[Rfam]
RNA sequence: AACUUAUCAAGAGAAACUGAGGGACUGGCCCGAUGAUGUUUCAGCAACCACACAUAUGUGACGGUGCUAAAUCCAGCAGAACAUAGUUCUGGGAGAUGAGAA
Numbered sequence: 001a002a003c004u005u006a007u008c009a010a011g012a013g014a015a016a017c018u019g020a021g022g023g024a025c026u027g028g029c030c031c032g033a034u035g036a037u038g039u040u041u042c043a044g045c046a047a048c049c050a051c052a053c054a055u056a057u058g059u060g061a062c063g064g065u066g067c068u069a070a071a072u073c074c075a076g077c078a079g080a081a082c083a084u085a086g087u088u089c090u091g092g093g094a095g096a097u098g099a100g101a102a
Base pairs, nucleotide, nucleotide: 003100004099005098006097007096008095013042014041015040016039017038021031022030023029025076026075027074028073043068044067045066046065048064049063051060052059053058072094077091078090079089080088